[Rfam]
RNA sequence: UAGUGAAUUUUGCUUAAUUUCCCAAAAGGAAAACGGGGGAACCAAGUUGGCAUAAAGCCUAAGGGGUGAAUCGCACAAGUGCGUAGGACAGUCAACAGUCCGAAUCCGUCAGCUAACCUCGUAAGCGCGUGUGACAUGAAUG
Numbered sequence: 001u002a003g004u005g006a007a008u009u010u011u012g013c014u015u016a017a018u019u020u021c022c023c024a025a026a027a028g029g030a031a032a033a034c035g036g037g038g039g040a041a042c043c044a045a046g047u048u049g050g051c052a053u054a055a056a057g058c059c060u061a062a063g064g065g066g067u068g069a070a071u072c073g074c075a076c077a078a079g080u081g082c083g084u085a086g087g088a089c090a091g092u093c094a095a096c097a098g099u100c101c102g103a104a105u106c107c108g109u110c111a112g113c114u115a116a117c118c119u120c121g122u123a124a125g126c127g128c129g130u131g132u133g134a135c136a137u138g139a140a141u142g
Stems, first nucleotide, its partner, number of pairs: 011127004018032005033122006043063001064107003072083004086101004

This 142-nucleotide sequence from Alkalibacter rhizosphaerae belongs to the Rfam family "c-di-AMP riboswitch aptamer (ydaO/yuaA leader)". Gene Ontology terms of the family: cyclic-di-AMP binding and regulation of gene expression. Taxonomically the source falls in Alkalibacter (Bacteria, Bacillati, Bacillota, Clostridia). It scores 87 bits against the family's covariance model.